[Rfam]
RNA sequence: CUGCGAGGACGGCCUCGCAUUCCCCGACGCUCGGUGGGGACGACCCUG
Numbered sequence: 001c002u003g004c005g006a007g008g009a010c011g012g013c014c015u016c017g018c019a020u021u022c023c024c025c026g027a028c029g030c031u032c033g034g035u036g037g038g039g040a041c042g043a044c045c046c047u048g
Stems, first nucleotide, its partner, number of pairs: 002019007035048005
Rfam assigns this 48-nucleotide sequence from Microvirga aerophila to the family "Guanidine-II riboswitch aptamer (mini-ykkC)".
The base pairs follow the family's consensus structure, which is taken from published work.
NCBI's taxonomy places the organism under Bacteria, Pseudomonadati, Hyphomicrobiales, Methylobacteriaceae, Microvirga.